A member of the RNA family "MIR1428 microRNA precursor family" from Oryza sativa, 109 nucleotides long. Pairs were carried over by alignment from the consensus structure, which was predicted with RNAalifold.
[Rfam]
RNA sequence: UGCUUUGCGAAUUCACAGGCCCUAUCUUGUGGUAUGAACUAAGUACGCGAUGAUUUCUGGUACGUAUUGGGGGCUUACCAUAAGAUAAUGCCGUGAAUUCGUAAAGCGU
Numbered sequence: 001u002g003c004u005u006u007g008c009g010a011a012u013u014c015a016c017a018g019g020c021c022c023u024a025u026c027u028u029g030u031g032g033u034a035u036g037a038a039c040u041a042a043g044u045a046c047g048c049g050a051u052g053a054u055u056u057c058u059g060g061u062a063c064g065u066a067u068u069g070g071g072g073g074c075u076u077a078c079c080a081u082a083a084g085a086u087a088a089u090g091c092c093g094u095g096a097a098u099u100c101g102u103a104a105a106g107c108g109u
Stems, first nucleotide, its partner, number of pairs: 001108015018092003023087012036074001039071002042068004047063001049061001